This 71-nucleotide RNA from Sphenodon punctatus belongs to the Rfam family "mir-219 microRNA precursor family". Rfam links the family to the GO terms miRNA-mediated post-transcriptional gene silencing and RISC complex.
RNA sequence: CCGGCUCCUGAUUGUCCAAACGCAAUUCUUGUCUCCGCGCCCAAGAGUUGAGUGUGGACAUCAUGAGCCGU
Numbered sequence: 001c002c003g004g005c006u007c008c009u010g011a012u013u014g015u016c017c018a019a020a021c022g023c024a025a026u027u028c029u030u031g032u033c034u035c036c037g038c039g040c041c042c043a044a045g046a047g048u049u050g051a052g053u054g055u056g057g058a059c060a061u062c063a064u065g066a067g068c069c070g071u
Stems, first nucleotide, its partner, number of pairs: 002070006009063004014059005021052001023050009